Record summary
Shown here is a 69-nucleotide RNA sequence from Prevotella sp. CAG:487, a member of the family "Bacteroidetes FopS (family of paralogous sRNAs)". From the family's description: The RNA-binding protein RbpB and BTncRNA_FopS sRNA are involved in the post-transcription regulation of polysaccharide utilisation loci (PUL). FopS sRNAs function as post-transcriptional repressors by binding to the vicinity of the start codon of the first mRNA of target PUL polycistrons, typically corresponding to the cognate SusC homolog, impeding translation of the respective glycan transporter. A reference for the family is Ruttiger et al. (2025), "The global RNA-binding protein RbpB is a regulator of polysaccharide utilization in Bacteroides thetaiotaomicron", Nat Commun. Its family is annotated with sRNA-mediated gene silencing in the Gene Ontology. Pairs were carried over by alignment from the consensus structure, which is taken from published work. The source organism's lineage runs through Bacteria, Pseudomonadati, Bacteroidia, Prevotellaceae and Prevotella. The family has 12 seed sequences and 822 matches in Rfam 15.1.
[Rfam]
RNA sequence: GCGUUUUUCAUGGUAUUAGAUUUAAGGUUAACAAAGGUUUAGGGACUCAGCGGAGUCCUUUUUUUUUGC
Numbered sequence: 001g002c003g004u005u006u007u008u009c010a011u012g013g014u015a016u017u018a019g020a021u022u023u024a025a026g027g028u029u030a031a032c033a034a035a036g037g038u039u040u041a042g043g044g045a046c047u048c049a050g051c052g053g054a055g056u057c058c059u060u061u062u063u064u065u066u067u068g069c
Stems, first nucleotide, its partner, number of pairs: 042059007